A member of the RNA family "c-di-AMP riboswitch aptamer (ydaO/yuaA leader)" from Streptomyces sp. UH6, 175 nucleotides long.
Rfam links the family to the GO terms regulation of gene expression and cyclic-di-AMP binding.
Taxonomically the source falls in Streptomyces (Bacteria, Bacillati, Actinomycetes, Kitasatosporales).
It scores 60 bits against the family's covariance model.

RNA sequence: GGUCACCACACACCCAUUCCAUGACGGCAGGAGCGGGGGACCCAGGUACGCCGCCGGCCCGGAGCACGCUUCCGGACGGCUCGGGGUGAAGCCUGUCGCCCGACCAGGGCGACGGGCCGGGCAGCCUUUCUGGCCCGAACCCGACAGCUCACCUCGCAGGCGCCGGAAAGGAUCA
Numbered sequence: 001g002g003u004c005a006c007c008a009c010a011c012a013c014c015c016a017u018u019c020c021a022u023g024a025c026g027g028c029a030g031g032a033g034c035g036g037g038g039g040a041c042c043c044a045g046g047u048a049c050g051c052c053g054c055c056g057g058c059c060c061g062g063a064g065c066a067c068g069c070u071u072c073c074g075g076a077c078g079g080c081u082c083g084g085g086g087u088g089a090a091g092c093c094u095g096u097c098g099c100c101c102g103a104c105c106a107g108g109g110c111g112a113c114g115g116g117c118c119g120g121g122c123a124g125c126c127u128u129u130c131u132g133g134c135c136c137g138a139a140c141c142c143g144a145c146a147g148c149u150c151a152c153c154u155c156g157c158a159g160g161c162g163c164c165g166g167a168a169a170g171g172a173u174c175a
Stems, first nucleotide, its partner, number of pairs: 011162001013160002018032003033157006043083001084142003092116010119136004